The record is an 82-nucleotide sequence from Anabas testudineus, which matches "Small nucleolar RNA SNORD74" in Rfam. It is annotated as a C/D-box small nucleolar RNA.

[Rfam]
Nucleotides: 082
Stems, first nucleotide, its partner, number of pairs: 001082005
Number, partner (000 for none) and nucleotide at each position: 001082c002081c003080c004079a005078u006000g007000a008000c009000u010000g011000c012000a013000u014000g015000a016000u017000g018000a019000a020000a021000a022000a023000u024000a025000u026000g027000u028000u029000g030000g031000u032000a033000g034000g035000g036000a037000c038000a039000u040000c041000u042000g043000a044000g045000u046000a047000a048000a049000u050000g051000u052000g053000a054000a055000a056000g057000a058000a059000u060000g061000c062000c063000a064000a065000c066000u067000u068000u069000u070000c071000u072000g073000a074000c075000u076000g077000c078005a079004u080003g081002g082001g

Pairs were carried over by alignment from the consensus structure, which was predicted with PFOLD. Its family is annotated with RNA processing and nucleolus in the Gene Ontology. Taxonomically the source falls in Anabas (Eukaryota, Opisthokonta, Deuterostomia, Eurypterygia).